Rfam assigns this 83-nucleotide sequence from Clupea harengus to the family "Small nucleolar RNA SNORD100".
Rfam classes the family as a C/D-box small nucleolar RNA.
The family has 26 seed sequences and 838 matches in Rfam 15.1.
NCBI's taxonomy places the organism under Eukaryota, Opisthokonta, Otomorpha, Clupeinae, Clupea.
The family is grouped with related families in Rfam's "SNORD100 clan".
The family's consensus secondary structure was predicted with RNAalifold.

[Rfam]
RNA sequence: UGUGUCAGUGAUGACAAAUUGGCUCCCUCUACUGAGACCCAGUGAGGAUAAUUGCCAUGUUACCCAAUUCUGACUGAGACACA
Numbered sequence: 001u002g003u004g005u006c007a008g009u010g011a012u013g014a015c016a017a018a019u020u021g022g023c024u025c026c027c028u029c030u031a032c033u034g035a036g037a038c039c040c041a042g043u044g045a046g047g048a049u050a051a052u053u054g055c056c057a058u059g060u061u062a063c064c065c066a067a068u069u070c071u072g073a074c075u076g077a078g079a080c081a082c083a
Stems, first nucleotide, its partner, number of pairs: 001083006